The family of this 78-nucleotide RNA sequence from Malonomonas rubra is "c-di-GMP-I riboswitch aptamer". Rfam links the family to the GO term cyclic-di-GMP binding. The match comes from Rfam's covariance-model search (53 bits). GEMM was predicted in a large-scale screen for bacterial structured RNA regulatory elements. The source organism's lineage runs through Bacteria, Pseudomonadati, Thermodesulfobacteriota, Desulfuromonadia and Malonomonas rubra.

[Rfam]
RNA sequence: AUCCCGAAAAGCCAAACCCUCUGAGAGGGGGGCACGGAAAGCUACGGGGCUUUUAUUUAAGAAGGCCGGGCUGCCGAA
Numbered sequence: 001a002u003c004c005c006g007a008a009a010a011g012c013c014a015a016a017c018c019c020u021c022u023g024a025g026a027g028g029g030g031g032g033c034a035c036g037g038a039a040a041g042c043u044a045c046g047g048g049g050c051u052u053u054u055a056u057u058u059a060a061g062a063a064g065g066c067c068g069g070g071c072u073g074c075c076g077a078a
Base pairs, nucleotide, nucleotide: 012037013036017032018031019030020029021028022027040072041071042070043069045068046067047066050061